About this RNA:
Shown here is a 47-nucleotide RNA sequence from Dermacoccus sp. 147Ba, a member of the family "L31-Actinobacteria ribosomal protein leader". It scores 42 bits against the family's covariance model.
RNA sequence: UUGGCUUCCGGUUCACGUCGCUCGCCCGAGCAGACGACCCGGCGGCA
Numbered sequence: 001u002u003g004g005c006u007u008c009c010g011g012u013u014c015a016c017g018u019c020g021c022u023c024g025c026c027c028g029a030g031c032a033g034a035c036g037a038c039c040c041g042g043c044g045g046c047a
Stems, first nucleotide, its partner, number of pairs: 004046001006045001008042004016036004020031004